[Rfam]
RNA sequence: GGUGUGGUCGGUAACCUGCAACCAUGCAGGCCCUGUGGCAGGGGCGCGCCAACAAUCACAACGAUGCCUGCGGGCAUGAACGGAGA
Numbered sequence: 001g002g003u004g005u006g007g008u009c010g011g012u013a014a015c016c017u018g019c020a021a022c023c024a025u026g027c028a029g030g031c032c033c034u035g036u037g038g039c040a041g042g043g044g045c046g047c048g049c050c051a052a053c054a055a056u057c058a059c060a061a062c063g064a065u066g067c068c069u070g071c072g073g074g075c076a077u078g079a080a081c082g083g084a085g086a
Stems, first nucleotide, its partner, number of pairs: 001050006015030006064077005
RNA: KDPG-aldolase RNA